[Rfam]
Shown here is a 90-nucleotide RNA from Triticum urartu, a member of the family "Plastid-rpl20 3UTR RNA".
Rfam 15.1 lists 587 matches to the family in 315 species.
The literature on the family includes a 2023 paper in Plant Commun by Richter et al., "Retrograde signaling in plants: A critical review focusing on the GUN pathway and beyond".
Rfam describes the family as follows. Plastid rpl20 is a non-coding RNA (ncRNA) recognised in plastids. It was found in the three prime untranslated region (3UTR) of rpl20 gene, it presence in the 3UTR region sugest a role in transcript maduration.
A search with the family's covariance model found it, with a score of 78 bits.
It is annotated as a cis-regulatory element.

Nucleotides: 090
Base pairs, nucleotide, nucleotide: 007030008029009028010027011026012025014023015022064085065084066083067082068081069080
Number, partner (000 for none) and nucleotide at each position: 001000g002000a003000u004000g005000a006000a007030u008029u009028c010027c011026c012025g013000a014023a015022g016000a017000g018000g019000g020000a021000a022015c023014u024000c025012c026011g027010g028009g029008a030007a031000g032000a033000u034000a035000c036000a037000a038000u039000a040000a041000a042000u043000u044000a045000a046000g047000a048000u049000u050000a051000a052000g053000u054000g055000g056000u057000a058000g059000g060000a061000a062000u063000c064085a065084a066083a067082g068081a069080g070000c071000u072000g073000g074000a075000u076000u077000a078000c079000u080069u081068u082067c083066u084065u085064u086000a087000u088000a089000a090000u